[Rfam]
RNA sequence: CAGGAUCACAGACGUUUAAAUUACACUCCUUCUGCUGUGCCUUACAGCAGUAGAAGGGGUGAAAUUUAAACGUCUGUGAUCCUG
Dot-bracket structure: ((((((((((((((((((((((.(((((((((((((((........))))))))))))))).))))))))))))))))))))))
Numbered sequence: 001c002a003g004g005a006u007c008a009c010a011g012a013c014g015u016u017u018a019a020a021u022u023a024c025a026c027u028c029c030u031u032c033u034g035c036u037g038u039g040c041c042u043u044a045c046a047g048c049a050g051u052a053g054a055a056g057g058g059g060u061g062a063a064a065u066u067u068a069a070a071c072g073u074c075u076g077u078g079a080u081c082c083u084g
Stems, first nucleotide, its partner, number of pairs: 001084022024061015